[Rfam]
RNA sequence: AACGUGCUCCGGGGUCGGUGUAAGUCCGAACCGGCGGUUAUAGUCCGCGACCCGUGCGCCUUCGAAAGAGGGCAAUCGGUUGAAUCGGUGAAAUUCCGAUACCGACAGUUAAAGUCUGGAUGAGAGAAGCACGUA
Number, nucleotide and partner (000 for none) at each position: 001a000002a134003c133004g132005u131006g130007c129008u128009c126010c000011g000012g000013g000014g000015u000016c028017g027018g026019u000020g000021u000022a000023a000024g000025u000026c018027c017028g016029a000030a115031c114032c104033g103034g048035c047036g046037g045038u000039u000040a000041u000042a000043g102044u101045c037046c036047g035048c034049g000050a000051c000052c079053c078054g000055u000056g000057c000058g000059c000060c000061u000062u000063c000064g000065a000066a000067a000068g000069a000070g000071g000072g000073c000074a000075a000076u000077c000078g053079g052080u000081u000082g000083a000084a100085u099086c098087g097088g096089u000090g000091a000092a000093a000094u000095u000096c088097c087098g086099a085100u084101a044102c043103c033104g032105a000106c118107a117108g116109u000110u000111a000112a000113a000114g031115u030116c108117u107118g106119g000120a000121u000122g000123a000124g000125a000126g009127a000128a008129g007130c006131a005132c004133g003134u002135a000

A member of the RNA family "FMN riboswitch aptamer (RFN element)" from Psychromicrobium silvestre, 135 nucleotides long.
Gene Ontology term of the family: FMN binding.
The RFN element is a highly conserved domain that is found frequently in the 5'-untranslated regions of prokaryotic mRNAs that encode for flavin mononucleotide (FMN) biosynthesis and transport proteins.
Lineage of the source: Bacteria > Actinomycetota > Micrococcales > Micrococcaceae > Psychromicrobium.